[Rfam]
RNA sequence: CAUCUCUGUGAUGAGCGAUUUGAAAUUGAAAGGUAGUGGACGGAUAUCUAUUGAUGAAGAAAAUAAUUAUGAAAGAUG
Dot-bracket structure: (((((....................................................................)))))
This 78-nucleotide RNA from Populus tomentosa belongs to the Rfam family "Small nucleolar RNA R21". Gene Ontology terms of the family: RNA processing and nucleolus. The family's RNA type in Rfam is C/D-box small nucleolar RNA. A reference for the family is Barneche et al. (2001), "Identification of 66 box C/D snoRNAs in Arabidopsis thaliana: extensive gene duplications generated multiple isoforms predicting new ribosomal RNA 2'-O-methylation sites", J Mol Biol.